[Rfam]
RNA sequence: CAGUACACUCAUCCAUAAAGUAGGAAACACUACAGCGUUCAGUCCUGUCUAGUAGUGCUUUCUACUUUAUGGGUGGCUGCACUGC
Numbered sequence: 001c002a003g004u005a006c007a008c009u010c011a012u013c014c015a016u017a018a019a020g021u022a023g024g025a026a027a028c029a030c031u032a033c034a035g036c037g038u039u040c041a042g043u044c045c046u047g048u049c050u051a052g053u054a055g056u057g058c059u060u061u062c063u064a065c066u067u068u069a070u071g072g073g074u075g076g077c078u079g080c081a082c083u084g085c
Base pairs, nucleotide, nucleotide: 014071015070016069017068018067019066020065021064022063023062026059028057029056030055031054032053033052
RNA: mir-142 microRNA precursor family
Organism: Hymenochirus boettgeri